[Rfam]
RNA sequence: GCGCCCGUAGCUCAGUUGGAUAGAGCGCGGGACUUCUAAUCCUGAGGUCGCUGGUUCGAAUCCAGCCGGGCGCA
Numbered sequence: 001g002c003g004c005c006c007g008u009a010g011c012u013c014a015g016u017u018g019g020a021u022a023g024a025g026c027g028c029g030g031g032a033c034u035u036c037u038a039a040u041c042c043u044g045a046g047g048u049c050g051c052u053g054g055u056u057c058g059a060a061u062c063c064a065g066c067c068g069g070g071c072g073c074a
Base pairs, nucleotide, nucleotide: 001073002072003071004070005069006068007067010026011025012024013023028044029043030042031041032040050066051065052064053063054062
RNA: tRNA